[Rfam]
RNA sequence: GUUGCGGGAAUGGGCCACUACCUCGCAGUCACGUGAUAUCGGAAUGCAAUGAUCUACGUUAAAUUGUGUUUCUUUUUGAAUAGUUCAUGUGAUGUGACGUAGUGGAACAUUCCUGGCG
Dot-bracket structure: ....((((((....(((((((.((((..((((.(((................................................))).)))).)))).)))))))....))))))...
RNA: mir-989 microRNA precursor family